[Rfam]
Nucleotides: 307
Base pairs, nucleotide, nucleotide: 040053041052042051043050044049057185058184059183060182061181067178068177069176070175071174072173073172082163083162084161086160087159088158092108093107094106095105096104109145110144111143112142113141114140115139186201187200188199189198191212192211193210195209196208197207271287272286273285274284277304278303279302280301281300282299
Number, partner (000 for none) and nucleotide at each position: 001000c002000c003000c004000c005000u006000c007000g008000a009000a010000a011000u012000c013000g014000g015000c016000g017000c018000g019000g020000g021000g022000a023000u024000g025000c026000g027000c028000u029000a030000u031000a032000u033000g034000a035000g036000g037000c038000u039000c040053g041052u042051c043050a044049c045000u046000u047000c048000g049044g050043u051042g052041a053040c054000u055000a056000u057185g058184g059183u060182g061181a062000u063000a064000a065000a066000c067178g068177c069176g070175g071174c072173u073172c074000g075000a076000g077000a078000u079000a080000a081000g082163c083162g084161u085000u086160g087159c088158g089000g090000a091000c092108c093107c094106g095105g096104g097000g098000g099000c100000a101000g102000u103000g104096c105095c106094c107093g108092g109145c110144g111143c112142c113141u114140c115139c116000a117000c118000c119000a120000u121000c122000a123000c124000c125000c126000u127000u128000c129000g130000g131000g132000g133000u134000g135000g136000c137000a138000g139115g140114g141113g142112g143111g144110c145109g146000a147000a148000a149000c150000a151000g152000g153000c154000u155000c156000g157000a158088c159087g160086c161084g162083c163082g164000u165000g166000g167000u168000a169000a170000u171000g172073g173072g174071g175070c176069c177068g178067u179000u180000u181061u182060u183059g184058c185057c186201c187200g188199g189198c190000a191212u192211g193210g194000u195209u196208c197207c198189g199188c200187c201186g202000u203000u204000a205000u206000c207197g208196g209195g210193c211192c212191g213000a214000u215000u216000c217000u218000a219000a220000g221000u222000g223000c224000g225000a226000a227000c228000g229000a230000c231000a232000a233000c234000g235000a236000c237000g238000c239000a240000c241000u242000c243000g244000c245000u246000g247000u248000u249000g250000c251000u252000g253000c254000g255000u256000a257000a258000g259000c260000a261000g262000u263000g264000a265000u266000a267000a268000g269000c270000g271287c272286g273285g274284u275000u276000c277304g278303g279302g280301g281300g282299g283000c284274a285273c286272c287271g288000g289000g290000c291000a292000a293000c294000a295000g296000a297000a298000g299282c300281c301280c302279c303278c304277c305000a306000c307000u

The record is a 307-nucleotide RNA from Roseicella aerolata, which matches "Alphaproteobacteria transfer-messenger RNA" in Rfam. It is annotated as a non-coding RNA gene. Bacterial tmRNA, also known as 10Sa RNA or SsrA, is named for its dual tRNA and mRNA-like properties. Its role is to liberate the mRNA from a stalled ribosome. To accomplish this part of the tmRNA is used as a reading frame that ends in a translation stop signal. The broken mRNA is replaced in the ribosome by the tmRNA and translation of the tmRNA leads to addition of a proteolysis tag to the incomplete protein enabling recognition by a protease. Recently a number of permuted tmRNA genes have been found encoded in two parts. tmRNAs have been identified in eubacteria and some chloroplasts but are absent from archaeal and eukaryote nuclear genomes. It scores 248 bits against the family's covariance model. The organism belongs to Roseicella, within Bacteria.